[Rfam]
RNA sequence: UUCUUCCUUGUCUUGGGGAGCAUAGUGCGCCAUGAUCGUAAAGUGAGAGCACUGAUGCUGGCACCCACAUGUUGUGACAUGACCCGCGCCCGGCCGCCGUCAGGGGGACCGAGCGCAAUUUUUGAAAGG
Numbered sequence: 001u002u003c004u005u006c007c008u009u010g011u012c013u014u015g016g017g018g019a020g021c022a023u024a025g026u027g028c029g030c031c032a033u034g035a036u037c038g039u040a041a042a043g044u045g046a047g048a049g050c051a052c053u054g055a056u057g058c059u060g061g062c063a064c065c066c067a068c069a070u071g072u073u074g075u076g077a078c079a080u081g082a083c084c085c086g087c088g089c090c091c092g093g094c095c096g097c098c099g100u101c102a103g104g105g106g107g108a109c110c111g112a113g114c115g116c117a118a119u120u121u122u123u124g125a126a127a128g129g
Stems, first nucleotide, its partner, number of pairs: 005019005020058004024053005030047001037043001086116004091111001095105001097104002

Shown here is a 129-nucleotide sequence from Plutella xylostella, a member of the family "U4atac minor spliceosomal RNA". About the family: U4atac is an essential component of the minor U12-type spliceosome complex which is required for removal of the rarer class of eukaryotic introns (AT-AC, U12-type). A search with the family's covariance model found it, with a score of 81 bits. Its Rfam clan is "U4 clan". It is annotated as a spliceosomal small nuclear RNA. Gene Ontology terms of the family: U4atac snRNP, mRNA 5'-splice site recognition and pre-mRNA 5'-splice site binding.